[Rfam]
RNA sequence: ACCCUUUUCUUUGCCGCGAUAAUCCCUAUAUCAGCCGGGCCGGUUUGACCGGCUAUGGUGAUAAACUGCGGCGUGCAAUAGGCACAGCGGACCCGGGGGCGGUACCCGGCGGCUCCACCAAGACCGGCGCUUCUCGCAAGAUGGCGUGCCGUUCCUGACGGGGCCGAACUAGGAUCGACGUGUGCUCAAAAGCGCUGUUUUUGCCCGGGCUGAGUAACCCGUUCAAGGCUCAAAACCCAUAAGUGCCAACGAUAACGAAGCACUUGCUCUUGCAGCGUAAUUGAGGGCCUCACGGCCUGACAUUACCCUAACAGAACGCGGCUGGGCCAGCCGGGCAACAGAAUGGAUUCCA
Numbered sequence: 001a002c003c004c005u006u007u008u009c010u011u012u013g014c015c016g017c018g019a020u021a022a023u024c025c026c027u028a029u030a031u032c033a034g035c036c037g038g039g040c041c042g043g044u045u046u047g048a049c050c051g052g053c054u055a056u057g058g059u060g061a062u063a064a065a066c067u068g069c070g071g072c073g074u075g076c077a078a079u080a081g082g083c084a085c086a087g088c089g090g091a092c093c094c095g096g097g098g099g100c101g102g103u104a105c106c107c108g109g110c111g112g113c114u115c116c117a118c119c120a121a122g123a124c125c126g127g128c129g130c131u132u133c134u135c136g137c138a139a140g141a142u143g144g145c146g147u148g149c150c151g152u153u154c155c156u157g158a159c160g161g162g163g164c165c166g167a168a169c170u171a172g173g174a175u176c177g178a179c180g181u182g183u184g185c186u187c188a189a190a191a192g193c194g195c196u197g198u199u200u201u202u203g204c205c206c207g208g209g210c211u212g213a214g215u216a217a218c219c220c221g222u223u224c225a226a227g228g229c230u231c232a233a234a235a236c237c238c239a240u241a242a243g244u245g246c247c248a249a250c251g252a253u254a255a256c257g258a259a260g261c262a263c264u265u266g267c268u269c270u271u272g273c274a275g276c277g278u279a280a281u282u283g284a285g286g287g288c289c290u291c292a293c294g295g296c297c298u299g300a301c302a303u304u305a306c307c308c309u310a311a312c313a314g315a316a317c318g319c320g321g322c323u324g325g326g327c328c329a330g331c332c333g334g335g336c337a338a339c340a341g342a343a344u345g346g347a348u349u350c351c352a
Base pairs, nucleotide, nucleotide: 039053040052041051042050043049057205058204059203060202061201068198069197070196071195072194073193074192083184084183085182087181088180089179093109094108095107096106097105110166111165112164113163114162115161116160206221207220208219209218211232212231213230319333320332321331322330324351325350326349
Notes: Alphaproteobacteria transfer-messenger RNA: a 352-nucleotide RNA sequence from Sphingobium nicotianae. The literature on the family includes a 1996 paper in RNA by Williams and Bartel, "Phylogenetic analysis of tmRNA secondary structure". Pairs were carried over by alignment from the consensus structure, which is taken from published work. From the family's description: Bacterial tmRNA, also known as 10Sa RNA or SsrA, is named for its dual tRNA and mRNA-like properties.